Small nucleolar RNA SNORA25: a 126-nucleotide RNA sequence from Myotis brandtii. The source organism's lineage runs through Eukaryota, Chordata, Amniota, Eutheria and Myotis.
RNA sequence: AGGUCAUCUCAAAGAGAGCUUUUUGGACCAAAACCAGGAGUUAUUAACUCUGUGACCUAAGAUUGAAGAUCUUUAUAGUAUGUAAUAGACACUCAAUAGUGCUAUGUUUUCCUGAGGAGUAUAAGA
Number, nucleotide and partner (000 for none) at each position: 001a000002g057003g056004u055005c054006a053007u052008c000009u000010c000011a000012a000013a000014g045015a044016g000017a042018g041019c040020u039021u038022u000023u037024u000025g000026g035027a000028c000029c000030a000031a000032a000033a000034c000035c026036a000037g023038g021039a020040g019041u018042u017043a000044u015045u014046a000047a000048c000049u000050c000051u000052g007053u006054g005055a004056c003057c002058u000059a000060a000061g000062a000063u000064u000065g000066a000067a000068g000069a000070u000071c119072u118073u117074u116075a000076u000077a113078g112079u000080a110081u000082g000083u000084a000085a105086u104087a103088g102089a000090c101091a100092c099093u098094c000095a000096a000097u000098a093099g092100u091101g090102c088103u087104a086105u085106g000107u000108u000109u000110u080111c000112c078113u077114g000115a000116g074117g073118a072119g071120u000121a000122u000123a000124a000125g000126a000
Rfam 15.1 lists 1,129 matches to the family in 449 species. From the family's description: ACA25 is a member of the H/ACA class of snoRNA that guide the sites of modification of uridines to pseudouridines. Gene Ontology terms of the family: RNA processing and nucleolus.